[Rfam]
RNA: U5 spliceosomal RNA
Organism: Scyliorhinus torazame
RNA sequence: GUACUCUGGUUUCUCUUCAGAUCGUAUAAAUCUUUCGCCUUUUACUAAAGAUUUCCGUGGAGAGGAACACUCAGGGUUUUAAUUAAUUUUUUGAUGCCCUGCCUCUGGUGGGGCU
Numbered sequence: 001g002u003a004c005u006c007u008g009g010u011u012u013c014u015c016u017u018c019a020g021a022u023c024g025u026a027u028a029a030a031u032c033u034u035u036c037g038c039c040u041u042u043u044a045c046u047a048a049a050g051a052u053u054u055c056c057g058u059g060g061a062g063a064g065g066a067a068c069a070c071u072c073a074g075g076g077u078u079u080u081a082a083u084u085a086a087u088u089u090u091u092u093g094a095u096g097c098c099c100u101g102c103c104u105c106u107g108g109u110g111g112g113g114c115u
Stems, first nucleotide, its partner, number of pairs: 003077004009068011028054008094115001096114006